[Rfam]
The record is a 249-nucleotide RNA sequence from Cohnella nanjingensis, which matches "T-box leader" in Rfam.
It is annotated as a cis-regulatory leader.
The family's consensus secondary structure is taken from published work.
It scores 109 bits against the family's covariance model.

RNA sequence: ACGCAAGCUGUGAUAAGGAGCAGUAUUCGUCCCGCGUCACCCAGAGAACCGGCGGUAGGUGCAAGCCGGCUGUCGCAGACGAAGAACUCGCCUUGGAGCUCCGCGCGCAAUCCGGCCGCCUCCGUCUACGGAGAAUCCCCGGCAAGCGCGGCGUACCCUUCUCGUUACGAAGGAAGAGUGGACGGCAUGCCCAAGCAGGGCGCCCGUCAACUAGGGUGGUACCACGGGAAUAAUCCUCUCGUCCCUAGC
Numbered sequence: 001a002c003g004c005a006a007g008c009u010g011u012g013a014u015a016a017g018g019a020g021c022a023g024u025a026u027u028c029g030u031c032c033c034g035c036g037u038c039a040c041c042c043a044g045a046g047a048a049c050c051g052g053c054g055g056u057a058g059g060u061g062c063a064a065g066c067c068g069g070c071u072g073u074c075g076c077a078g079a080c081g082a083a084g085a086a087c088u089c090g091c092c093u094u095g096g097a098g099c100u101c102c103g104c105g106c107g108c109a110a111u112c113c114g115g116c117c118g119c120c121u122c123c124g125u126c127u128a129c130g131g132a133g134a135a136u137c138c139c140c141g142g143c144a145a146g147c148g149c150g151g152c153g154u155a156c157c158c159u160u161c162u163c164g165u166u167a168c169g170a171a172g173g174a175a176g177a178g179u180g181g182a183c184g185g186c187a188u189g190c191c192c193a194a195g196c197a198g199g200g201c202g203c204c205c206g207u208c209a210a211c212u213a214g215g216g217u218g219g220u221a222c223c224a225c226g227g228g229a230a231u232a233a234u235c236c237u238c239u240c241g242u243c244c245c246u247a248g249c
Stems, first nucleotide, its partner, number of pairs: 007099002015094004026083006038072002049069005101151006152164002181208005213246004224242005
Dot-bracket structure: ......((......((((.......((((((......((.........(((((...........))))).)).....)))))).......))))...)).((((((.......................................))))))((.........))................(((((..................)))))....((((.......(((((.........)))))))))...
NCBI's taxonomy places the organism under Bacteria, Bacillati, Bacilli, Paenibacillaceae, Cohnella.